This 86-nucleotide RNA from Argiope bruennichi belongs to the Rfam family "Small nucleolar RNA snR60/Z15/Z230/Z193/J17". Gene Ontology terms of the family: RNA processing and nucleolus. The literature on the family includes a 1999 paper in Science by Lowe and Eddy, "A computational screen for methylation guide snoRNAs in yeast". A search with the family's covariance model found it, with a score of 59 bits. It is annotated as a C/D-box small nucleolar RNA. The base pairs follow the family's consensus structure.
[Rfam]
RNA sequence: UAUGUACUAAUGAUGAUAUUAUAGUUCAGCUGAUAAUCUAUGCUGACUUCCUACUUUAUGUCUUUCGCUCCUAUCUGAAGUAAUGA
Number, nucleotide and partner (000 for none) at each position: 001u000002a000003u000004g000005u082006a081007c080008u079009a000010a000011u000012g000013a000014u000015g000016a000017u000018a000019u000020u000021a000022u000023a000024g000025u000026u000027c000028a000029g000030c000031u000032g000033a000034u000035a000036a000037u000038c000039u000040a000041u000042g000043c000044u000045g000046a000047c000048u000049u000050c000051c000052u000053a000054c000055u000056u000057u000058a000059u000060g000061u000062c000063u000064u000065u000066c000067g000068c000069u000070c000071c000072u000073a000074u000075c000076u000077g000078a000079a008080g007081u006082a005083a000084u000085g000086a000